[Rfam]
RNA sequence: CUUUAUGAUGUUCGUAAUUUGCGUCUGAGCGUAGGCUUCAGAGACAGUUGCCUGCUGUCACAUUCUGACCUACGUCGUUGUUGAUAAAUCUAUCUGAAAG
Numbered sequence: 001c002u003u004u005a006u007g008a009u010g011u012u013c014g015u016a017a018u019u020u021g022c023g024u025c026u027g028a029g030c031g032u033a034g035g036c037u038u039c040a041g042a043g044a045c046a047g048u049u050g051c052c053u054g055c056u057g058u059c060a061c062a063u064u065c066u067g068a069c070c071u072a073c074g075u076c077g078u079u080g081u082u083g084a085u086a087a088a089u090c091u092a093u094c095u096g097a098a099a100g
Stems, first nucleotide, its partner, number of pairs: 001100003022083002025080001031073005041065002043059005